[Rfam]
RNA sequence: GCCGGCGUAGUCUAGUGGUUAUGACGUCUACUCCCUAUGGCCUGGUGCCUUUGGCAGGCAAUGCCAUGUUGGGAAUUGUAGGAGGCGAGGGUUCGAUUCCCUCCGCCGGCA
Numbered sequence: 001g002c003c004g005g006c007g008u009a010g011u012c013u014a015g016u017g018g019u020u021a022u023g024a025c026g027u028c029u030a031c032u033c034c035c036u037a038u039g040g041c042c043u044g045g046u047g048c049c050u051u052u053g054g055c056a057g058g059c060a061a062u063g064c065c066a067u068g069u070u071g072g073g074a075a076u077u078g079u080a081g082g083a084g085g086c087g088a089g090g091g092u093u094c095g096a097u098u099c100c101c102u103c104c105g106c107c108g109g110c111a
Stems, first nucleotide, its partner, number of pairs: 001110007010025003027082005087103005

This 111-nucleotide RNA from Penicillium angulare belongs to the Rfam family "tRNA".
It scores 54 bits against the family's covariance model.